Background: The record is an 82-nucleotide RNA sequence from Corynebacterium uterequi, which matches "L31-Corynebacteriaceae ribosomal protein leader" in Rfam. It is one of the family's seed sequences. The family is grouped with related families in Rfam's "Ribosomal Protein L31 Leader clan". The base pairs follow the family's consensus structure, which is taken from published work. By type it is a cis-regulatory leader.

RNA sequence: ACUCGAGCGCGAUCGCCCGGCCCGCCGGCCUCUUGCCGGCUAGUGGUGCGGGGGAGACGACUCGUAGUUCAAUCCUGAGGGA
Numbered sequence: 001a002c003u004c005g006a007g008c009g010c011g012a013u014c015g016c017c018c019g020g021c022c023c024g025c026c027g028g029c030c031u032c033u034u035g036c037c038g039g040c041u042a043g044u045g046g047u048g049c050g051g052g053g054g055a056g057a058c059g060a061c062u063c064g065u066a067g068u069u070c071a072a073u074c075c076u077g078a079g080g081g082a
Stems, first nucleotide, its partner, number of pairs: 001068003004064004013055002016052004020047002